A member of the RNA family "mir-16 microRNA precursor family" from Lates calcarifer, 82 nucleotides long.
RNA sequence: GCUUUGCUUCAGCAGCACGAUCAAUACUGGAGGCUUCAGCUAGAGUCUUAACUCCAAUAUUUACGUGCUGCUACAGUAAAGC
Numbered sequence: 001g002c003u004u005u006g007c008u009u010c011a012g013c014a015g016c017a018c019g020a021u022c023a024a025u026a027c028u029g030g031a032g033g034c035u036u037c038a039g040c041u042a043g044a045g046u047c048u049u050a051a052c053u054c055c056a057a058u059a060u061u062u063a064c065g066u067g068c069u070g071c072u073a074c075a076g077u078a079a080a081g082c
Stems, first nucleotide, its partner, number of pairs: 001082003005078003011072008020062001023061004028056003

Clan: mir-15 clan.